[Rfam]
RNA sequence: UUGGUGCAUCCAGAGCGGCUCGCCCGACGCGGUGAGCCCGGCAACCUGCCCGGACCGGCAAGGUGCUUCGCGCAAACCCAGCGCAGAUGUGGCCCAUAGCGGCAACACGAGGUCCAGCC
Numbered sequence: 001u002u003g004g005u006g007c008a009u010c011c012a013g014a015g016c017g018g019c020u021c022g023c024c025c026g027a028c029g030c031g032g033u034g035a036g037c038c039c040g041g042c043a044a045c046c047u048g049c050c051c052g053g054a055c056c057g058g059c060a061a062g063g064u065g066c067u068u069c070g071c072g073c074a075a076a077c078c079c080a081g082c083g084c085a086g087a088u089g090u091g092g093c094c095c096a097u098a099g100c101g102g103c104a105a106c107a108c109g110a111g112g113u114c115c116a117g118c119c
Stems, first nucleotide, its partner, number of pairs: 006090005015039001017038008040067003045063003048059003052115005092103003